[Rfam]
Shown here is a 108-nucleotide RNA sequence from Elaeis guineensis, a member of the family "mir-166 microRNA precursor family". The source organism's lineage runs through Eukaryota, Spermatophyta, Arecoideae, Elaeidinae and Elaeis. This family represents the plant microRNA (miRNA) precursor mir-166. The match comes from Rfam's covariance-model search (79 bits). Pairs were carried over by alignment from the consensus structure, which was predicted with PFOLD. The literature on the family includes a 2002 paper in Genes Dev by Reinhart et al., "MicroRNAs in plants".
RNA sequence: GUUGAGGGGAAUGUUGUCUGGUUCGAAACCGUUCGCAAGAAGAGCACCUUCUGUUGCUGAUCUCUCUUCCAUGGGAACGGUUUCGGACCAGGCUUCAUUCCCCCCAAC
Numbered sequence: 001g002u003u004g005a006g007g008g009g010a011a012u013g014u015u016g017u018c019u020g021g022u023u024c025g026a027a028a029c030c031g032u033u034c035g036c037a038a039g040a041a042g043a044g045c046a047c048c049u050u051c052u053g054u055u056g057c058u059g060a061u062c063u064c065u066c067u068u069c070c071a072u073g074g075g076a077a078c079g080g081u082u083u084c085g086g087a088c089c090a091g092g093c094u095u096c097a098u099u100c101c102c103c104c105c106a107a108c
Stems, first nucleotide, its partner, number of pairs: 001108004006103008016093006024085003